[Rfam]
Nucleotides: 135
Stems, first nucleotide, its partner, number of pairs: 001057005013047007021039002068128006081116008095107003
Number, partner (000 for none) and nucleotide at each position: 001057g002056c003055a004054c005053c006000u007000g008000a009000a010000u011000c012000u013047u014046u015045c016044c017043c018042a019041u020000u021039c022038u023000u024000u025000g026000c027000u028000g029000c030000u031000c032000u033000g034000u035000g036000c037000u038022g039021g040000u041019g042018u043017g044016g045015g046014g047013a048000c049000a050000g051000a052000c053005g054004g055003u056002g057001c058000a059000a060000c061000a062000g063000u064000a065000c066000a067000a068128g069127c070126a071125g072124a073123g074000g075000a076000a077000a078000u079000c080000c081116a082115g083114a084113c085112a086111g087110g088109u089000u090000g091000u092000u093000u094000u095107c096106c097105a098000u099000u100000u101000g102000u103000c104000u105097u106096g107095g108000g109088g110087c111086c112085u113084g114083u115082c116081u117000c118000u119000a120000c121000g122000a123073c124072u125071c126070u127069g128068c129000c130000a131000c132000a133000c134000c135000u
A member of the RNA family "Small nucleolar RNA SNORA55" from Canis lupus, 135 nucleotides long. ACA55 is a member of the H/ACA class of snoRNA that guide the sites of modification of uridines to pseudouridines. By type it is an H/ACA-box small nucleolar RNA. Pairs were carried over by alignment from the consensus structure, which was predicted with PFOLD.